[Rfam]
The record is a 144-nucleotide RNA from Desulfofarcimen acetoxidans, which matches "c-di-AMP riboswitch aptamer (ydaO/yuaA leader)" in Rfam. Pairs were carried over by alignment from the consensus structure. Its family is annotated with cyclic-di-AMP binding and regulation of gene expression in the Gene Ontology. For this family Rfam cites "New RNA motifs suggest an expanded scope for riboswitches in bacterial genetic control" (Barrick et al., Proc Natl Acad Sci U S A, 2004). The source organism's lineage runs through Bacteria, Clostridia, Peptococcaceae, Desulfofarcimen and Desulfofarcimen acetoxidans.
RNA sequence: AAUUUUCUAUCGCUGAAUUCAUUUAGAAGCGGGGGAACCACUUCCUGGGGUGAGUCCUUAUUGAGUUUAAAAAUUCAAUUAAGGUAGGGUUAUUCUUCGGCCCGAAUCCGUCAGCUAACUUCGUAAGCGUUGAAGGAAAAGAGA
Numbered sequence: 001a002a003u004u005u006u007c008u009a010u011c012g013c014u015g016a017a018u019u020c021a022u023u024u025a026g027a028a029g030c031g032g033g034g035g036a037a038c039c040a041c042u043u044c045c046u047g048g049g050g051u052g053a054g055u056c057c058u059u060a061u062u063g064a065g066u067u068u069a070a071a072a073a074u075u076c077a078a079u080u081a082a083g084g085u086a087g088g089g090u091u092a093u094u095c096u097u098c099g100g101c102c103c104g105a106a107u108c109c110g111u112c113a114g115c116u117a118a119c120u121u122c123g124u125a126a127g128c129g130u131u132g133a134a135g136g137a138a139a140a141g142a143g144a
Stems, first nucleotide, its partner, number of pairs: 011129004018028003029124006039047002048109003056084004087103004